[Rfam]
The family of this 82-nucleotide RNA from Punica granatum is "Small nucleolar RNA Z199". About the family: snoZ199 is a C/D box small nucleolar RNA, which acts as a methylation guide RNA for sites on 18S and 25S rRNA. Rice snoZ199 is reported to be homologous to Arabidopsis snoR13. The family's consensus secondary structure was predicted with PFOLD. The literature on the family includes a 2003 paper in Nucleic Acids Res by Chen et al., "The high diversity of snoRNAs in plants: identification and comparative study of 120 snoRNA genes from Oryza sativa". The family has 17 seed sequences and 953 matches in Rfam 15.1.

RNA sequence: UGAUCAGUGAAGGGAAAAAAAACUGCAACAAUAUGAUAGAACUUGGUUCCAUGAUUCCUUUGUAUUUAAGUCUCUGAUGAUU
Numbered sequence: 001u002g003a004u005c006a007g008u009g010a011a012g013g014g015a016a017a018a019a020a021a022a023c024u025g026c027a028a029c030a031a032u033a034u035g036a037u038a039g040a041a042c043u044u045g046g047u048u049c050c051a052u053g054a055u056u057c058c059u060u061u062g063u064a065u066u067u068a069a070g071u072c073u074c075u076g077a078u079g080a081u082u
Stems, first nucleotide, its partner, number of pairs: 002081001004080003039049004
Dot-bracket structure: .(.(((................................((((...))))............................)))).